Shown here is a 77-nucleotide RNA sequence from Alligator sinensis, a member of the family "Mammalian CPEB3 ribozyme". The organism belongs to Alligator, within Eukaryota. It scores 43 bits against the family's covariance model.
[Rfam]
RNA sequence: CCAGGGUACCUAUAGGCCAUAACAGAAGCAUUCACAGUGCGGCCCUGACAGGUCCCAACAAAUCUAUGAAUUCUGCU
Numbered sequence: 001c002c003a004g005g006g007u008a009c010c011u012a013u014a015g016g017c018c019a020u021a022a023c024a025g026a027a028g029c030a031u032u033c034a035c036a037g038u039g040c041g042g043c044c045c046u047g048a049c050a051g052g053u054c055c056c057a058a059c060a061a062a063u064c065u066a067u068g069a070a071u072u073c074u075g076c077u
Stems, first nucleotide, its partner, number of pairs: 015044004021077001023075005028040003050065004